Betaproteobacteria transfer-messenger RNA: a 362-nucleotide sequence from Pelistega europaea. For this family Rfam cites "Probing the structure of the Escherichia coli 10Sa RNA (tmRNA)" (Felden et al., RNA, 1997). The family's consensus secondary structure is taken from published work. Its Rfam clan is "tRNA clan". Gene Ontology term of the family: RNA catabolic process. Taxonomically the source falls in Pelistega (Bacteria, Pseudomonadota, Burkholderiales, Alcaligenaceae).

RNA sequence: UAUCACUAGCAAAAUUGCUGUUUUAUAGAAAUUAUGUUAAGAUAAUUUUCUAAGCUGUAUAUCUGGUCGACUGACAGAUUUCUGGACGCGGGUUCAACUCCCGCCGUCUCCACCAAUAGGGCAUUUCCCCGUGCAGGUUUAGGCAUGGCGAUGUUACUUUAGAGUGUCUUAUUGAUGGGGACGUAUUGGUUUCGACAGGGAUAAAUAGGAAGAUUGGCAGCCGGUAGGCGAUGACCGUAAAUCAAGCAAUGUUAUAACUGCAAAUGACGAAAAAUUUGCUUUAGCCGCCUAAUUAACAGGCCGCUAGGAGAGUGAUUCACUUGGCAACAGAACGAAUCAAGGCAGCUUCGGCUGCCUUUUUA
Numbered sequence: 001u002a003u004c005a006c007u008a009g010c011a012a013a014a015u016u017g018c019u020g021u022u023u024u025a026u027a028g029a030a031a032u033u034a035u036g037u038u039a040a041g042a043u044a045a046u047u048u049u050c051u052a053a054g055c056u057g058u059a060u061a062u063c064u065g066g067u068c069g070a071c072u073g074a075c076a077g078a079u080u081u082c083u084g085g086a087c088g089c090g091g092g093u094u095c096a097a098c099u100c101c102c103g104c105c106g107u108c109u110c111c112a113c114c115a116a117u118a119g120g121g122c123a124u125u126u127c128c129c130c131g132u133g134c135a136g137g138u139u140u141a142g143g144c145a146u147g148g149c150g151a152u153g154u155u156a157c158u159u160u161a162g163a164g165u166g167u168c169u170u171a172u173u174g175a176u177g178g179g180g181a182c183g184u185a186u187u188g189g190u191u192u193c194g195a196c197a198g199g200g201a202u203a204a205a206u207a208g209g210a211a212g213a214u215u216g217g218c219a220g221c222c223g224g225u226a227g228g229c230g231a232u233g234a235c236c237g238u239a240a241a242u243c244a245a246g247c248a249a250u251g252u253u254a255u256a257a258c259u260g261c262a263a264a265u266g267a268c269g270a271a272a273a274a275u276u277u278g279c280u281u282u283a284g285c286c287g288c289c290u291a292a293u294u295a296a297c298a299g300g301c302c303g304c305u306a307g308g309a310g311a312g313u314g315a316u317u318c319a320c321u322u323g324g325c326a327a328c329a330g331a332a333c334g335a336a337u338c339a340a341g342g343c344a345g346c347u348u349c350g351g352c353u354g355c356c357u358u359u360u361u362a
Stems, first nucleotide, its partner, number of pairs: 054221004063217002066214002071209002078202007088104005105183007222237004307322002314338005339358008